About this RNA: A member of the RNA family "mir-9215 microRNA precursor family" from Cnephaeus nilssonii, 85 nucleotides long.
RNA sequence: UGAAGUGCUCCGACACUAAGACAUGUGGUUGCCGUGGGUUGAUGGGAACCAGGCUCACCCAGGGUCAGUGUUACCAGCGCUCAGU
Numbered sequence: 001u002g003a004a005g006u007g008c009u010c011c012g013a014c015a016c017u018a019a020g021a022c023a024u025g026u027g028g029u030u031g032c033c034g035u036g037g038g039u040u041g042a043u044g045g046g047a048a049c050c051a052g053g054c055u056c057a058c059c060c061a062g063g064g065u066c067a068g069u070g071u072u073a074c075c076a077g078c079g080c081u082c083a084g085u
Stems, first nucleotide, its partner, number of pairs: 001083003006079004012072006022063001024061002027059003031054003037050004
Its family is annotated with miRNA-mediated post-transcriptional gene silencing and RISC complex in the Gene Ontology.